Rfam assigns this 72-nucleotide RNA sequence from Nippostrongylus brasiliensis to the family "mir-87 microRNA precursor family". Its family is annotated with miRNA-mediated post-transcriptional gene silencing and RISC complex in the Gene Ontology. NCBI's taxonomy places the organism under Eukaryota, Ecdysozoa, Strongyloidea, Heligmosomidae, Nippostrongylus.
[Rfam]
RNA sequence: GCCUCGCCGCCUGAACCUUUCGUCUCAACCUCUAUAUCGGGCAGGUGAGCAAAGUUUCAGGUGUGCGAGCGG
Number, nucleotide and partner (000 for none) at each position: 001g000002c000003c069004u068005c067006g066007c065008c063009g062010c061011c060012u059013g058014a057015a000016c000017c054018u053019u052020u051021c000022g000023u000024c049025u048026c047027a046028a000029c045030c044031u043032c000033u000034a000035u000036a000037u000038c000039g000040g000041g000042c000043a031044g030045g029046u027047g026048a025049g024050c000051a020052a019053a018054g017055u000056u000057u014058c013059a012060g011061g010062u009063g008064u000065g007066c006067g005068a004069g003070c000071g000072g000